Notes: Shown here is an 84-nucleotide RNA sequence from Meleagris gallopavo, a member of the family "Small nucleolar RNA SNORD121A". The family's RNA type in Rfam is C/D-box small nucleolar RNA. It scores 64 bits against the family's covariance model. The literature on the family includes a 2006 paper in Nucleic Acids Res by Yang et al., "snoSeeker: an advanced computational package for screening of guide and orphan snoRNA genes in the human genome". The family has 26 seed sequences and 881 matches in Rfam 15.1. The family's consensus secondary structure was predicted with WAR.
[Rfam]
RNA sequence: UGCCAGGAAACUGUGAUGUGAUACUUCCAAGCACAUAUCUGACCGCUUUGUGAGGAAACAUGAGUAUUUCUGAGUUUUCUGGAG
Numbered sequence: 001u002g003c004c005a006g007g008a009a010a011c012u013g014u015g016a017u018g019u020g021a022u023a024c025u026u027c028c029a030a031g032c033a034c035a036u037a038u039c040u041g042a043c044c045g046c047u048u049u050g051u052g053a054g055g056a057a058a059c060a061u062g063a064g065u066a067u068u069u070c071u072g073a074g075u076u077u078u079c080u081g082g083a084g
Base pairs, nucleotide, nucleotide: 001084003082004081005080006079008077009076010075011074